[Rfam]
RNA sequence: AAAAAAUGAUGAGACCUUUAUUUUAAUAUCAAAGCCUUUCGGGUCUGAUGCAUCCGUGAUGAAUACUGUGAGACUGAUUUU
Numbered sequence: 001a002a003a004a005a006a007u008g009a010u011g012a013g014a015c016c017u018u019u020a021u022u023u024u025a026a027u028a029u030c031a032a033a034g035c036c037u038u039u040c041g042g043g044u045c046u047g048a049u050g051c052a053u054c055c056g057u058g059a060u061g062a063a064u065a066c067u068g069u070g071a072g073a074c075u076g077a078u079u080u081u
Stems, first nucleotide, its partner, number of pairs: 003081004
Dot-bracket structure: ..((((.......................................................................))))